[Rfam]
RNA sequence: AUCUUUGGGCUUGGGGCAAUGACGUAGCUAAUGAGGUAUUAACCGAGGCACGUCUAUUGCUGGUUGAAAAUUAUUUCCAAACCCUCUCUUAGGUCUAGGUUCUGCCCUGGCCUUUGAGAAUUUCUAGAAGGGCUCCCUCCUGGGUAAAUCC
Number, nucleotide and partner (000 for none) at each position: 001a000002u000003c000004u000005u000006u000007g000008g000009g000010c000011u000012u000013g000014g000015g000016g000017c000018a000019a000020u000021g054022a053023c052024g051025u050026a000027g049028c048029u047030a000031a000032u000033g000034a000035g044036g043037u042038a000039u000040u000041a000042a037043c036044c035045g000046a000047g029048g028049c027050a025051c024052g023053u022054c021055u000056a000057u000058u000059g000060c000061u000062g000063g000064u000065u000066g000067a000068a000069a000070a000071u000072u000073a000074u000075u000076u000077c000078c000079a000080a000081a000082c000083c000084c000085u000086c118087u117088c116089u000090u000091a114092g113093g112094u000095c110096u109097a108098g107099g106100u000101u000102c000103u000104g000105c000106c099107c098108u097109g096110g095111c000112c093113u092114u091115u000116g088117a087118g086119a000120a000121u000122u000123u000124c000125u000126a000127g000128a000129a000130g000131g000132g000133c000134u000135c000136c000137c000138u000139c000140c000141u000142g000143g000144g000145u000146a000147a000148a000149u000150c000151c000
U4 spliceosomal RNA: a 151-nucleotide RNA from Hibiscus trionum. The match comes from Rfam's covariance-model search (93 bits). Taxonomically the source falls in Hibiscus (Eukaryota, Streptophyta, Magnoliopsida, Malvaceae). Its family is annotated with spliceosomal tri-snRNP complex assembly and U4 snRNP in the Gene Ontology. Pairs were carried over by alignment from the consensus structure, which is taken from published work.